[Rfam]
RNA sequence: UAUUAAAAAUUUUAUUCAUUUAUACUAGUAAAAAUUAGUUAUUAUAUGUUAAAUUAAGGCAUAGGUAGUACGCCAUGUACUACUAUUUAGUUAUUCUAUUAGUCAUGCUAGUUUUUAACAGUAGAAAUGAAUGAAAUUUUUAACA
Numbered sequence: 001u002a003u004u005a006a007a008a009a010u011u012u013u014a015u016u017c018a019u020u021u022a023u024a025c026u027a028g029u030a031a032a033a034a035u036u037a038g039u040u041a042u043u044a045u046a047u048g049u050u051a052a053a054u055u056a057a058g059g060c061a062u063a064g065g066u067a068g069u070a071c072g073c074c075a076u077g078u079a080c081u082a083c084u085a086u087u088u089a090g091u092u093a094u095u096c097u098a099u100u101a102g103u104c105a106u107g108c109u110a111g112u113u114u115u116u117a118a119c120a121g122u123a124g125a126a127a128u129g130a131a132u133g134a135a136a137u138u139u140u141u142a143a144c145a
Base pairs, nucleotide, nucleotide: 003143004142005141006140007139008138009137010136011135012134013133014132015131016130018128019127020126021125023123024122025121026120029117030116031115032114033113

Overview:
MIR7502 microRNA precursor family: a 145-nucleotide RNA from Gossypium mustelinum. The base pairs follow the family's consensus structure, which was predicted with RNAalifold. It scores 75 bits against the family's covariance model.